Shown here is a 190-nucleotide RNA sequence from Paramesorhizobium endophyticum, a member of the family "Group II catalytic intron D1-D4-6".
A search with the family's covariance model found it, with a score of 137 bits.
The organism belongs to Paramesorhizobium, within Bacteria.
[Rfam]
RNA sequence: CCGCCCGGUAGCGAGUGUUGCGGCCGUGUCGGUGACGAUACGGGCGAAGCGUACACAGCAAGCGUGUGGGGUGUGGAAUUGAGCCACGUAAUUCCAGAUGUUGCAGGGGCCGAGACGGUCAGAAACGUCGAAGGCAAUAUGUGCGGCACCGCUAUGCGAGGUGCCGUCGCCCUGCCGGGGUCGAAGGCCA
Numbered sequence: 001c002c003g004c005c006c007g008g009u010a011g012c013g014a015g016u017g018u019u020g021c022g023g024c025c026g027u028g029u030c031g032g033u034g035a036c037g038a039u040a041c042g043g044g045c046g047a048a049g050c051g052u053a054c055a056c057a058g059c060a061a062g063c064g065u066g067u068g069g070g071g072u073g074u075g076g077a078a079u080u081g082a083g084c085c086a087c088g089u090a091a092u093u094c095c096a097g098a099u100g101u102u103g104c105a106g107g108g109g110c111c112g113a114g115a116c117g118g119u120c121a122g123a124a125a126c127g128u129c130g131a132a133g134g135c136a137a138u139a140u141g142u143g144c145g146g147c148a149c150c151g152c153u154a155u156g157c158g159a160g161g162u163g164c165c166g167u168c169g170c171c172c173u174g175c176c177g178g179g180g181u182c183g184a185a186g187g188c189c190a
Base pairs, nucleotide, nucleotide: 009061011059012058015056016055017054018053019051020050021046022045024043025042026041027040028039029038030037031036080184081182083181084180085179087177088176103175104174105173106172107171108170109135110134111133114129115128116127117126140169141168143167144166145165146164147163148162149161150160